Shown here is a 111-nucleotide sequence from Ochotona princeps, a member of the family "Small nucleolar RNA SNORD90". Its family is annotated with nucleolus and RNA processing in the Gene Ontology. By type it is a C/D-box small nucleolar RNA. Rfam's curators put it in the seed alignment.
RNA sequence: GAAGAAGUUUUUCAAGUGUCUCAUGAUGAAUUUCAUAGGGCAGAUUCUGAGGUGAAAAUUUGAUUCAUCACUGAUACCCUAACUGUGAAUUCUGAAGACACUUGAAAACAU
Numbered sequence: 001g002a003a004g005a006a007g008u009u010u011u012u013c014a015a016g017u018g019u020c021u022c023a024u025g026a027u028g029a030a031u032u033u034c035a036u037a038g039g040g041c042a043g044a045u046u047c048u049g050a051g052g053u054g055a056a057a058a059u060u061u062g063a064u065u066c067a068u069c070a071c072u073g074a075u076a077c078c079c080u081a082a083c084u085g086u087g088a089a090u091u092c093u094g095a096a097g098a099c100a101c102u103u104g105a106a107a108a109c110a111u
Base pairs, nucleotide, nucleotide: 013104014103015102016101017100018099019098020097021096030091032089033088034087035086036085038080039079040078043075046074047073049071051069052068053067054066055065056064